The family of this 95-nucleotide RNA sequence from bacterium 1XD42-8 is "S10-Clostridia ribosomal protein leader".
The base pairs follow the family's consensus structure, which is taken from published work.

RNA sequence: UGAUAGCUGUGAAGCAAGAGGUUGCUGCCUUACAUAGAUAAAAGUUGGGCAGGUUUUCUGCGGAGCGAAUGUCAAGUUUGGGAAACUGGCGACAA
Numbered sequence: 001u002g003a004u005a006g007c008u009g010u011g012a013a014g015c016a017a018g019a020g021g022u023u024g025c026u027g028c029c030u031u032a033c034a035u036a037g038a039u040a041a042a043a044g045u046u047g048g049g050c051a052g053g054u055u056u057u058c059u060g061c062g063g064a065g066c067g068a069a070u071g072u073c074a075a076g077u078u079u080g081g082g083a084a085a086c087u088g089g090c091g092a093c094a095a
Stems, first nucleotide, its partner, number of pairs: 014061003018058004025052005070094004076090003